[Rfam]
RNA sequence: AAUGAUAAAUGGCAAACUUAUCGAAAGGUAAGGACGCAAAACUAAGGGUCUAAAGUUUCUAACUAUGAUCGCCGGGUUACCAAA
Numbered sequence: 001a002a003u004g005a006u007a008a009a010u011g012g013c014a015a016a017c018u019u020a021u022c023g024a025a026a027g028g029u030a031a032g033g034a035c036g037c038a039a040a041a042c043u044a045a046g047g048g049u050c051u052a053a054a055g056u057u058u059c060u061a062a063c064u065a066u067g068a069u070c071g072c073c074g075g076g077u078u079a080c081c082a083a084a
Stems, first nucleotide, its partner, number of pairs: 012037002017032006040078004046073002048069003055063003

Shown here is an 84-nucleotide sequence from Paraliobacillus quinghaiensis, a member of the family "c-di-GMP-I riboswitch aptamer". Pairs were carried over by alignment from the consensus structure, which is taken from published work. Its family is annotated with cyclic-di-GMP binding in the Gene Ontology.